[Rfam]
The family of this 80-nucleotide sequence from Halanaerobium praevalens is "Glycine riboswitch aptamer".
It scores 46 bits against the family's covariance model.
Lineage of the source: Bacteria > Bacillati > Bacillota > Halanaerobiaceae > Halanaerobium praevalens.
This family represents the bacterial glycine riboswitch.
RNA sequence: CUCUGGAAAGUUUGUUUUUUUAAAAACACCGACGGAGCAGUCUGUUUUAUACAGAUAAUCUCUCAGGUUUACGGACAGAG
Numbered sequence: 001c002u003c004u005g006g007a008a009a010g011u012u013u014g015u016u017u018u019u020u021u022a023a024a025a026a027c028a029c030c031g032a033c034g035g036a037g038c039a040g041u042c043u044g045u046u047u048u049a050u051a052c053a054g055a056u057a058a059u060c061u062c063u064c065a066g067g068u069u070u071a072c073g074g075a076c077a078g079a080g
Stems, first nucleotide, its partner, number of pairs: 001080005012026002015023001028068003031064002035062003041055004
Dot-bracket structure: (((((......((.(.......).)).(((((..(((...((((.......))))....))))).))).......)))))